[Rfam]
Annotation
The family of this 57-nucleotide RNA sequence from Streptomyces aidingensis is "L17-Actino-Proteobacteria ribosomal protein leader". Pairs were carried over by alignment from the consensus structure, which is taken from published work. NCBI's taxonomy places the organism under Bacteria, Bacillati, Actinomycetota, Streptomycetaceae, Streptomyces.

RNA sequence: CCGGCGGACAGCAGUCCGUCCGGGCCCUGACACCGGUGCCUGGCACGGCCGGUGCAG
Numbered sequence: 001c002c003g004g005c006g007g008a009c010a011g012c013a014g015u016c017c018g019u020c021c022g023g024g025c026c027c028u029g030a031c032a033c034c035g036g037u038g039c040c041u042g043g044c045a046c047g048g049c050c051g052g053u054g055c056a057g
Base pairs, nucleotide, nucleotide: 001023002022003021004020005018006017007016008015027057028056029055031054032053033052034051035050036049037048